Rfam assigns this 135-nucleotide sequence from Acinonyx jubatus to the family "Small nucleolar RNA SNORA70". Taxonomically the source falls in Acinonyx (Eukaryota, Chordata, Craniata, Eutheria). On this family, see Charette and Gray, IUBMB Life 2000: "Pseudouridine in RNA: what, where, how, and why". The family's consensus secondary structure was predicted with PFOLD. About the family: snoRNA U70 seems to be exclusive to mammals and is a member of the H/ACA class of snoRNA which contain H (ANANNA) and ACA box motifs. H/ACA box snoRNAs are involved in the conversion of uridines to pseudouridines (5-ribosyluracil) a constituent of structural RNAs (transfer, ribosomal, small nuclear, and small nucleolar). It is annotated as an H/ACA-box small nucleolar RNA.
[Rfam]
RNA sequence: GUGUUUUAUAUUUUAAUAACUUGUGCUUUUUCCCCUUGGGGGCCCAGUGUGCAAGGGCUGCAAACAGUAGGCUCCUUAGUAGUGUAUGCAGCCUGGUGAUUGGAUGGGUUGCCCUAUGGAACCUUGGAGACAGUC
Numbered sequence: 001g002u003g004u005u006u007u008a009u010a011u012u013u014u015a016a017u018a019a020c021u022u023g024u025g026c027u028u029u030u031u032c033c034c035c036u037u038g039g040g041g042g043c044c045c046a047g048u049g050u051g052c053a054a055g056g057g058c059u060g061c062a063a064a065c066a067g068u069a070g071g072c073u074c075c076u077u078a079g080u081a082g083u084g085u086a087u088g089c090a091g092c093c094u095g096g097u098g099a100u101u102g103g104a105u106g107g108g109u110u111g112c113c114c115u116a117u118g119g120a121a122c123c124u125u126g127g128a129g130a131c132a133g134u135c
Base pairs, nucleotide, nucleotide: 002053003052004051019048020047021046026041027040028039079122080121089111090110091109092108093107094106